[Rfam]
RNA sequence: AUAGUAGAUGGGUAUGGUGCACACCCGAAACCGUUUCAAGAAAUAGCUUGAAUCUAAUGGCGCCUACAAAGCA
Numbered sequence: 001a002u003a004g005u006a007g008a009u010g011g012g013u014a015u016g017g018u019g020c021a022c023a024c025c026c027g028a029a030a031c032c033g034u035u036u037c038a039a040g041a042a043a044u045a046g047c048u049u050g051a052a053u054c055u056a057a058u059g060g061c062g063c064c065u066a067c068a069a070a071g072c073a
Base pairs, nucleotide, nucleotide: 010026011025012024013023016064017063018062019061020060033054035052036051037050038049039048040047
RNA: Fluoride riboswitch aptamer (crcB RNA motif)
Organism: Lactococcus lactis